RNA sequence: UAUUUUUUAGUAAAUAAAUGGAUUUACCUGUGAGAUGACGUGGUUGUUACACCUAGUAUGAGAAUAUGACAUCCUAUUAAUUUUGUGCGAUGGCUGGUAAUAGGAUGCCAUGUCCUCAUCAUAAGUGGAACAGCCACGCCAUAUCACAGGUGAAUCAAUUCAUUGAUAGUGUGGUU
Number, nucleotide and partner (000 for none) at each position: 001u000002a175003u174004u173005u000006u171007u000008u000009a000010g167011u166012a000013a164014a163015u162016a000017a160018a159019u158020g000021g156022a155023u154024u153025u152026a151027c150028c149029u000030g147031u146032g145033a144034g000035a142036u141037g140038a000039c138040g000041u136042g135043g134044u133045u132046g131047u130048u129049a000050c000051a126052c125053c000054u123055a122056g000057u000058a119059u000060g000061a000062g000063a000064a113065u112066a000067u000068g000069a000070c107071a106072u105073c104074c103075u102076a101077u100078u099079a098080a000081u000082u000083u000084u000085g000086u000087g000088c000089g000090a000091u000092g000093g000094c000095u000096g000097g000098u079099a078100a077101u076102a075103g074104g073105a072106u071107g070108c000109c000110a000111u000112g065113u064114c000115c000116u000117c000118a000119u058120c000121a000122u055123a054124a000125g052126u051127g000128g000129a048130a047131c046132a045133g044134c043135c042136a041137c000138g039139c000140c037141a036142u035143a000144u033145c032146a031147c030148a000149g028150g027151u026152g025153a024154a023155u022156c021157a000158a019159u018160u017161c000162a015163u014164u013165g000166a011167u010168a000169g000170u000171g006172u000173g004174g003175u002176u000
The record is a 176-nucleotide RNA sequence from Oryza rufipogon, which matches "MIR807 microRNA precursor family" in Rfam. Rfam 15.1 lists 1,514 matches to the family in 13 species. Pairs were carried over by alignment from the consensus structure, which was predicted with WAR. The source organism's lineage runs through Eukaryota, Viridiplantae, Mesangiospermae, Poales and Oryza. A reference for the family is Luo et al. (2006), "Rice embryogenic calli express a unique set of microRNAs, suggesting regulatory roles of microRNAs in plant post-embryogenic development", FEBS Lett.